[Rfam]
Notes:
This 340-nucleotide RNA belongs to the Rfam family "throat-1 RNA". It is one of the family's seed sequences. The family's consensus secondary structure is taken from published work. It is annotated as a small RNA.
RNA sequence: AGUCCUCGCCAAUAGGACUAUAAAUAUAGAAAGCGAUUGUAAAGUUUCGCCUGCGGUUUCGUAAUGCCGACGCAAUAAAAGGACGGGGAUUGUAUAUGUGUUCCUAUUCAAACAAUGCAAUUCCUAAAUGGUAGAAGAUGUUGCGAAGCCAGUACCGCCUGGCGAUGAAAUGGCGGACGAAUUAGCAACAAAGGGGAAGGGUUAAUCGCCGAAGUUAGAUUUCGGAUAGCUGCGGAAGUGGCGGGAUUGGUAUAGUAGAUCAGUAAUGAUCUGAUAUGUAGGGCAAAUUGGAUUAAGACGCAUAGAAAUAUAUUUAAGCUGUAGAAGGCUUACUACAAUA
Numbered sequence: 001a002g003u004c005c006u007c008g009c010c011a012a013u014a015g016g017a018c019u020a021u022a023a024a025u026a027u028a029g030a031a032a033g034c035g036a037u038u039g040u041a042a043a044g045u046u047u048c049g050c051c052u053g054c055g056g057u058u059u060c061g062u063a064a065u066g067c068c069g070a071c072g073c074a075a076u077a078a079a080a081g082g083a084c085g086g087g088g089a090u091u092g093u094a095u096a097u098g099u100g101u102u103c104c105u106a107u108u109c110a111a112a113c114a115a116u117g118c119a120a121u122u123c124c125u126a127a128a129u130g131g132u133a134g135a136a137g138a139u140g141u142u143g144c145g146a147a148g149c150c151a152g153u154a155c156c157g158c159c160u161g162g163c164g165a166u167g168a169a170a171u172g173g174c175g176g177a178c179g180a181a182u183u184a185g186c187a188a189c190a191a192a193g194g195g196g197a198a199g200g201g202u203u204a205a206u207c208g209c210c211g212a213a214g215u216u217a218g219a220u221u222u223c224g225g226a227u228a229g230c231u232g233c234g235g236a237a238g239u240g241g242c243g244g245g246a247u248u249g250g251u252a253u254a255g256u257a258g259a260u261c262a263g264u265a266a267u268g269a270u271c272u273g274a275u276a277u278g279u280a281g282g283g284c285a286a287a288u289u290g291g292a293u294u295a296a297g298a299c300g301c302a303u304a305g306a307a308a309u310a311u312a313u314u315u316a317a318g319c320u321g322u323a324g325a326a327g328g329c330u331u332a333c334u335a336c337a338a339u340a
Base pairs, nucleotide, nucleotide: 002018003017004016005015006014033050034049035048036047054069055068056067057066087124088123089122090120091119092118093117094116095115097114098113099112139190140189141188142187143186144185152178153177155176156175157174158173209225210224211223212222213221229242230241231240232239233238256273257272258271259270260269261268262267275304276303277302278301279300316331317330318329319328320327